[Rfam]
RNA sequence: UGAGUAAGAUAAAUAAUCGCGGCCGCCUUCGCUGCAUUCCGCGGCGGGGCGGGUGAGGAAAGUCCGGGCUUCACAGGGCAGGAUGCCGGAUAACGUCCGGUGGAGGCGACUCCAAGGCCAGUGCAACAGAGAUAUACAGCAGGAUUGGGUGGCAGUGUCAUGCAGUCCUGUAAUGGUGGAAAGGCAGUGUAAGAGACUACCGUCCGUCCGGUAACGGGCGGAGCCAUGUAAACCCCAUCCGAAGCAAGACCAGAACGAAAGCCACAGGCCGGCCCGGUCUGCUUUCAGGUAGGUCGCUGGACGCGGCUGGCAACAGCCGUGCUAGACAGAUGAUUAUUCAAGACAUAACCCGGCUUAUCGUCUUGCUCACUUU
Numbered sequence: 001u002g003a004g005u006a007a008g009a010u011a012a013a014u015a016a017u018c019g020c021g022g023c024c025g026c027c028u029u030c031g032c033u034g035c036a037u038u039c040c041g042c043g044g045c046g047g048g049g050c051g052g053g054u055g056a057g058g059a060a061a062g063u064c065c066g067g068g069c070u071u072c073a074c075a076g077g078g079c080a081g082g083a084u085g086c087c088g089g090a091u092a093a094c095g096u097c098c099g100g101u102g103g104a105g106g107c108g109a110c111u112c113c114a115a116g117g118c119c120a121g122u123g124c125a126a127c128a129g130a131g132a133u134a135u136a137c138a139g140c141a142g143g144a145u146u147g148g149g150u151g152g153c154a155g156u157g158u159c160a161u162g163c164a165g166u167c168c169u170g171u172a173a174u175g176g177u178g179g180a181a182a183g184g185c186a187g188u189g190u191a192a193g194a195g196a197c198u199a200c201c202g203u204c205c206g207u208c209c210g211g212u213a214a215c216g217g218g219c220g221g222a223g224c225c226a227u228g229u230a231a232a233c234c235c236c237a238u239c240c241g242a243a244g245c246a247a248g249a250c251c252a253g254a255a256c257g258a259a260a261g262c263c264a265c266a267g268g269c270c271g272g273c274c275c276g277g278u279c280u281g282c283u284u285u286c287a288g289g290u291a292g293g294u295c296g297c298u299g300g301a302c303g304c305g306g307c308u309g310g311c312a313a314c315a316g317c318c319g320u321g322c323u324a325g326a327c328a329g330a331u332g333a334u335u336a337u338u339c340a341a342g343a344c345a346u347a348a349c350c351c352g353g354c355u356u357a358u359c360g361u362c363u364u365g366c367u368c369a370c371u372u373u
Stems, first nucleotide, its partner, number of pairs: 001369010011358001012338007020055002023052006060356003064353005069244004076275004081240005086100005101115001102113004116235002121233002123229003137175002139171009183201002186198003202224001203222008248295004257286006266280005302321008
Description:
Bacterial RNase P class A: a 373-nucleotide sequence from Acetatifactor muris. It is annotated as a ribozyme. For this family Rfam cites "Ribonuclease P: unity and diversity in a tRNA processing ribozyme" (Frank and Pace, Annu Rev Biochem, 1998). Pairs were carried over by alignment from the consensus structure, which is taken from published work. From the family's description: Ribonuclease P (RNase P) is a ubiquitous endoribonuclease, found in archaea, bacteria and eukarya as well as chloroplasts and mitochondria. Its best characterised activity is the generation of mature 5'-ends of tRNAs by cleaving the 5'-leader elements of precursor-tRNAs. Cellular RNase Ps are ribonucleoproteins. Taxonomically the source falls in Acetatifactor (Bacteria, Bacillati, Lachnospirales, Lachnospiraceae).